[Rfam]
RNA sequence: GGUGAAAGGUGUGCAUGGUGUCGGUCUGUGUUAUGUGUUGCUGCUGGACUGUGUUUUGCAGCCUGAGCAGCAACGCUCACUCCACACCUGUAGCCGUACAACAACAGGAGAUCAUAGUACUGGCCUUUGACGUCUUUAAAGACAACCUAACAUCGGCCAGCCUCCAAACUCUCCAACAUGU
Numbered sequence: 001g002g003u004g005a006a007a008g009g010u011g012u013g014c015a016u017g018g019u020g021u022c023g024g025u026c027u028g029u030g031u032u033a034u035g036u037g038u039u040g041c042u043g044c045u046g047g048a049c050u051g052u053g054u055u056u057u058g059c060a061g062c063c064u065g066a067g068c069a070g071c072a073a074c075g076c077u078c079a080c081u082c083c084a085c086a087c088c089u090g091u092a093g094c095c096g097u098a099c100a101a102c103a104a105c106a107g108g109a110g111a112u113c114a115u116a117g118u119a120c121u122g123g124c125c126u127u128u129g130a131c132g133u134c135u136u137u138a139a140a141g142a143c144a145a146c147c148u149a150a151c152a153u154c155g156g157c158c159a160g161c162c163u164c165c166a167a168a169c170u171c172u173c174c175a176a177c178a179u180g181u
Base pairs, nucleotide, nucleotide: 013091014090015089030080031079035077036075037074038073039072040071041070043068044067045065046064047063050060051059052058107174108173109172110171111170120160121159122158123157124156125155128152129151132143133142134141135140
About this RNA
Small nucleolar RNA SNORA23: a 181-nucleotide RNA sequence from Oryzias melastigma. The source organism's lineage runs through Eukaryota, Deuterostomia, Craniata, Euteleostomi and Oryzias. A search with the family's covariance model found it, with a score of 92 bits. Its family is annotated with nucleolus and RNA processing in the Gene Ontology. Rfam 15.1 lists 1,092 matches to the family in 632 species. Rfam classes the family as an H/ACA-box small nucleolar RNA.